[Rfam]
RNA sequence: CGUGUCUUCAAUUCCGUAGUGCAUUGCAGUGUUUGUAGCAUCAAUCUGCAAGCAGUGCGGAAGUGAGGCUUCGGC
Numbered sequence: 001c002g003u004g005u006c007u008u009c010a011a012u013u014c015c016g017u018a019g020u021g022c023a024u025u026g027c028a029g030u031g032u033u034u035g036u037a038g039c040a041u042c043a044a045u046c047u048g049c050a051a052g053c054a055g056u057g058c059g060g061a062a063g064u065g066a067g068g069c070u071u072c073g074g075c
Stems, first nucleotide, its partner, number of pairs: 006068005013061005020054003024051005
A member of the RNA family "mir-932 microRNA precursor family" from Psylliodes chrysocephalus, 75 nucleotides long. Taxonomically the source falls in Psylliodes (Eukaryota, Protostomia, Pancrustacea, Polyphaga). The match comes from Rfam's covariance-model search (85 bits). Rfam links the family to the GO terms miRNA-mediated post-transcriptional gene silencing and RISC complex.